[Rfam]
RNA sequence: AAAUUUUACUUGCCGAAUCCACAGUAACGUGGAACGGGGGACAAUUUAUUUUUGGGGUGGAUCCGUGCAAGCGGAAAGAGACCUUCUCCUCUUAACCCGUCAACUAACCUCGUAGGCAUGAAGGGAGUAAAA
Numbered sequence: 001a002a003a004u005u006u007u008a009c010u011u012g013c014c015g016a017a018u019c020c021a022c023a024g025u026a027a028c029g030u031g032g033a034a035c036g037g038g039g040g041a042c043a044a045u046u047u048a049u050u051u052u053u054g055g056g057g058u059g060g061a062u063c064c065g066u067g068c069a070a071g072c073g074g075a076a077a078g079a080g081a082c083c084u085u086c087u088c089c090u091c092u093u094a095a096c097c098c099g100u101c102a103a104c105u106a107a108c109c110u111c112g113u114a115g116g117c118a119u120g121a122a123g124g125g126a127g128u129a130a131a132a
Stems, first nucleotide, its partner, number of pairs: 011118004018033005034113006042054002055098003063074004077092004

The family of this 132-nucleotide RNA sequence from Aneurinibacillus sp. XH2 is "c-di-AMP riboswitch aptamer (ydaO/yuaA leader)".
Its family is annotated with regulation of gene expression and cyclic-di-AMP binding in the Gene Ontology.